[Rfam]
RNA sequence: ACAUUAUUAAAAGCGCCAGAACUUGGGCUUAGCGCGAGGAAAGAAUUCGUAUGCAUCACUUGAUCUAUUGAGCUCAUGUGAUGCAACGGAUUCACGGCAGCACCAAGUUGACGAGGUGAAGGUGUUCGAAACAUUCGGCGGGGACCUUCCGGUGAUUCACCAGAACCGAAAACCGAAAACGGAAAAUGGAUGGGCGACCGUUCACACAACGCUUCCGGUGGGUGAAAC
Numbered sequence: 001a002c003a004u005u006a007u008u009a010a011a012a013g014c015g016c017c018a019g020a021a022c023u024u025g026g027g028c029u030u031a032g033c034g035c036g037a038g039g040a041a042a043g044a045a046u047u048c049g050u051a052u053g054c055a056u057c058a059c060u061u062g063a064u065c066u067a068u069u070g071a072g073c074u075c076a077u078g079u080g081a082u083g084c085a086a087c088g089g090a091u092u093c094a095c096g097g098c099a100g101c102a103c104c105a106a107g108u109u110g111a112c113g114a115g116g117u118g119a120a121g122g123u124g125u126u127c128g129a130a131a132c133a134u135u136c137g138g139c140g141g142g143g144a145c146c147u148u149c150c151g152g153u154g155a156u157u158c159a160c161c162a163g164a165a166c167c168g169a170a171a172a173c174c175g176a177a178a179a180c181g182g183a184a185a186a187u188g189g190a191u192g193g194g195c196g197a198c199c200g201u202u203c204a205c206a207c208a209a210c211g212c213u214u215c216c217g218g219u220g221g222g223u224g225a226a227a228c
Base pairs, nucleotide, nucleotide: 020109021108022107023106024105025104026103029100118149119148120147121146122145126138127137128136129135150168151167152166153165173218174217175216177214178213187204188203189202190201191200192199193198
RNA: glmS glucosamine-6-phosphate activated ribozyme aptamer